PyrR binding site: a 110-nucleotide RNA from Virgibacillus indicus. The family's consensus secondary structure is taken from published work. From the family's description: This family represents the PyrR binding site and terminator structure. This RNA structure is found upstream of a variety of genes involved in pyrimidine biosynthesis and transport. The alignment also includes a portion of the antiterminator structure. The organism belongs to Virgibacillus, within Bacteria.
[Rfam]
RNA sequence: AAAACCUUUAAUUAAAUCCAGAGAGAUUUACAAGGUUGCUAUUCGGAAAAUACGUGUAUGUCUUACUGCACGUAUACCUCCCUGCAGCCUUAUGCAGGGAGGUUUUUUAU
Numbered sequence: 001a002a003a004a005c006c007u008u009u010a011a012u013u014a015a016a017u018c019c020a021g022a023g024a025g026a027u028u029u030a031c032a033a034g035g036u037u038g039c040u041a042u043u044c045g046g047a048a049a050a051u052a053c054g055u056g057u058a059u060g061u062c063u064u065a066c067u068g069c070a071c072g073u074a075u076a077c078c079u080c081c082c083u084g085c086a087g088c089c090u091u092a093u094g095c096a097g098g099g100a101g102g103u104u105u106u107u108u109a110u
Stems, first nucleotide, its partner, number of pairs: 003037006013030006048064001050063001052061003074105001076103011